[Rfam]
RNA: Z30 small nucleolar RNA
RNA sequence: UUGCAGUGAUGAACUAUGGUUUGUCUGACCUGGUAUUGCUGUUCCUCUGGGAAUAACUCUGACCAGGGCCUGAGGACUUAAUCUUCUCUCUGAGCAA
Numbered sequence: 001u002u003g004c005a006g007u008g009a010u011g012a013a014c015u016a017u018g019g020u021u022u023g024u025c026u027g028a029c030c031u032g033g034u035a036u037u038g039c040u041g042u043u044c045c046u047c048u049g050g051g052a053a054u055a056a057c058u059c060u061g062a063c064c065a066g067g068g069c070c071u072g073a074g075g076a077c078u079u080a081a082u083c084u085u086c087u088c089u090c091u092g093a094g095c096a097a
Stems, first nucleotide, its partner, number of pairs: 001096001003095002038057001040055002